RNA sequence: GAGGCGCAUCGGGGGAGUCGGAAACGACUGAGAGGAGGCCGCAGGGCCUCGACCCCUUGAACCUGAUCCGGGUCAUGCCGGCGAAGGGAUGGUGCCCCCUGGAACCU
Numbered sequence: 001g002a003g004g005c006g007c008a009u010c011g012g013g014g015g016a017g018u019c020g021g022a023a024a025c026g027a028c029u030g031a032g033a034g035g036a037g038g039c040c041g042c043a044g045g046g047c048c049u050c051g052a053c054c055c056c057u058u059g060a061a062c063c064u065g066a067u068c069c070g071g072g073u074c075a076u077g078c079c080g081g082c083g084a085a086g087g088g089a090u091g092g093u094g095c096c097c098c099c100u101g102g103a104a105c106c107u
Stems, first nucleotide, its partner, number of pairs: 006095005011056004017028004035050005062087003068081004
A member of the RNA family "TPP riboswitch aptamer (THI element)" from Aminomonas paucivorans, 107 nucleotides long. NCBI's taxonomy places the organism under Bacteria, Thermotogati, Synergistaceae, Aminomonas, Aminomonas paucivorans.